[Rfam]
RNA sequence: AAUGAAUAAUUACAUGCAGUUCAAGAGCAAACACCGUAUUGAACCUGUAUGCCUAAUUAUC
Dot-bracket structure: ............(((((.((((((...(.......)..))))))..)))))..........